[Rfam]
RNA sequence: AAGCGAUCAUUCUCAAGCGCCGGACGAAGGGGUGGGCCCGGCCGCGGACGACUUGCGAAGCACGCAGUCGACGCCCCCGGAAAUCGCUCCGGGCCUGCGCAUCUGA
Numbered sequence: 001a002a003g004c005g006a007u008c009a010u011u012c013u014c015a016a017g018c019g020c021c022g023g024a025c026g027a028a029g030g031g032g033u034g035g036g037c038c039c040g041g042c043c044g045c046g047g048a049c050g051a052c053u054u055g056c057g058a059a060g061c062a063c064g065c066a067g068u069c070g071a072c073g074c075c076c077c078c079g080g081a082a083a084u085c086g087c088u089c090c091g092g093g094c095c096u097g098c099g100c101a102u103c104u105g106a
Stems, first nucleotide, its partner, number of pairs: 003087005020041004028033001044074003054064002091100001093098001
RNA: Mycobacterium sRNA ncrMT1302
Organism: Mycobacterium conspicuum